[Rfam]
The record is a 73-nucleotide RNA from Longispora fulva, which matches "6C RNA" in Rfam. The source organism's lineage runs through Bacteria, Bacillati, Actinomycetes, Micromonosporaceae and Longispora. Rfam classes the family as a cis-regulatory element. The base pairs follow the family's consensus structure, which is taken from published work. The literature on the family includes a 2007 paper in Nucleic Acids Res by Weinberg et al., "Identification of 22 candidate structured RNAs in bacteria using the CMfinder comparative genomics pipeline".

RNA sequence: AGUCGGUCCGGCUCACCCCCCGGAGCCGGGCCGCACGACGACCCCCGCCACCCCCCGGCGGGGGUCGUCCAUU
Numbered sequence: 001a002g003u004c005g006g007u008c009c010g011g012c013u014c015a016c017c018c019c020c021c022g023g024a025g026c027c028g029g030g031c032c033g034c035a036c037g038a039c040g041a042c043c044c045c046c047g048c049c050a051c052c053c054c055c056c057g058g059c060g061g062g063g064g065u066c067g068u069c070c071a072u073u
Stems, first nucleotide, its partner, number of pairs: 002036002004033010037069013